Rfam assigns this 68-nucleotide RNA to the family "nadA riboswitch". It is one of the family's seed sequences. On this family, see Huang et al., RNA 2020: "Structure and ligand binding of the ADP-binding domain of the NAD(+) riboswitch". The base pairs follow the family's consensus structure, which is taken from published work.

[Rfam]
RNA sequence: GCUUUCAACAUCCCCGUUCCGGGGCGCGGUUUCCCGAACAGGCAAGCUUCGCGGCCGGAACUGAAGGC
Numbered sequence: 001g002c003u004u005u006c007a008a009c010a011u012c013c014c015c016g017u018u019c020c021g022g023g024g025c026g027c028g029g030u031u032u033c034c035c036g037a038a039c040a041g042g043c044a045a046g047c048u049u050c051g052c053g054g055c056c057g058g059a060a061c062u063g064a065a066g067g068c
Base pairs, nucleotide, nucleotide: 001068002067003066004065005064006063007062013054016061017060018059019058020057021056022055026050028048029047030046031045032044